[Rfam]
RNA sequence: CCCUCGCUCAAUAAAUCGCCAUUCGAAGCUCACAAACAGAGACAUUGCGAUUUAUCGCAGCGUCUCGCAUUCUUUCUGGCUUUGGGAGAAAGUCCCCGGACGUCUUCGUUUCGACGGAGCUUGCGGAAACGCGCCGCCAUAGAAGCACAGCGGCUGACUUCUGCACCCAGGCCCUCGCCCUGCGCCGGCCCUGCCCUCCGCUACAUCAAUUUGUUAAGGGCUCUGAAUCACGUUCUCUGCCGCUCUCGGUCCUCUUGGAUGAAGAUAUGAGUCCGCUGCCGAGAGAUUGGUCGGUUUCGAGACAGACGGGUCGUCUGACAGGUUGAUGGUUGGUAGACGCUUGGUGCUCGCGCGUGUGGUAUCGGGUCGCAGAGGAUUUGUUGUCGAGAUUGAUAGGUAUGCGAUUGCUCGGCGAAAGCUGGGUUACUCGAUGGGGCUCAUUCUUGGUGCGAGG
Numbered sequence: 001c002c003c004u005c006g007c008u009c010a011a012u013a014a015a016u017c018g019c020c021a022u023u024c025g026a027a028g029c030u031c032a033c034a035a036a037c038a039g040a041g042a043c044a045u046u047g048c049g050a051u052u053u054a055u056c057g058c059a060g061c062g063u064c065u066c067g068c069a070u071u072c073u074u075u076c077u078g079g080c081u082u083u084g085g086g087a088g089a090a091a092g093u094c095c096c097c098g099g100a101c102g103u104c105u106u107c108g109u110u111u112c113g114a115c116g117g118a119g120c121u122u123g124c125g126g127a128a129a130c131g132c133g134c135c136g137c138c139a140u141a142g143a144a145g146c147a148c149a150g151c152g153g154c155u156g157a158c159u160u161c162u163g164c165a166c167c168c169a170g171g172c173c174c175u176c177g178c179c180c181u182g183c184g185c186c187g188g189c190c191c192u193g194c195c196c197u198c199c200g201c202u203a204c205a206u207c208a209a210u211u212u213g214u215u216a217a218g219g220g221c222u223c224u225g226a227a228u229c230a231c232g233u234u235c236u237c238u239g240c241c242g243c244u245c246u247c248g249g250u251c252c253u254c255u256u257g258g259a260u261g262a263a264g265a266u267a268u269g270a271g272u273c274c275g276c277u278g279c280c281g282a283g284a285g286a287u288u289g290g291u292c293g294g295u296u297u298c299g300a301g302a303c304a305g306a307c308g309g310g311u312c313g314u315c316u317g318a319c320a321g322g323u324u325g326a327u328g329g330u331u332g333g334u335a336g337a338c339g340c341u342u343g344g345u346g347c348u349c350g351c352g353c354g355u356g357u358g359g360u361a362u363c364g365g366g367u368c369g370c371a372g373a374g375g376a377u378u379u380g381u382u383g384u385c386g387a388g389a390u391u392g393a394u395a396g397g398u399a400u401g402c403g404a405u406u407g408c409u410c411g412g413c414g415a416a417a418g419c420u421g422g423g424u425u426a427c428u429c430g431a432u433g434g435g436g437c438u439c440a441u442u443c444u445u446g447g448u449g450c451g452a453g454g
Stems, first nucleotide, its partner, number of pairs: 002454006008447004014406006023086001024084006039066005045060006091438002094436004122133004227378001235374006245366003258363003350357002408423006
Dot-bracket structure: .((((((((((..((((((...(((((((.........(((((.((((((....)))))).)))))............)))))).)....[[.[[[[........................((((....)))).............................................................................................(.......((((((....(((..........(((.........................................................................................((....))...))))))..))))))...)......................)))))).((((((....)))))).........]]]]]].....)))).))))))
RNA: RNase MRP
Organism: Fusarium redolens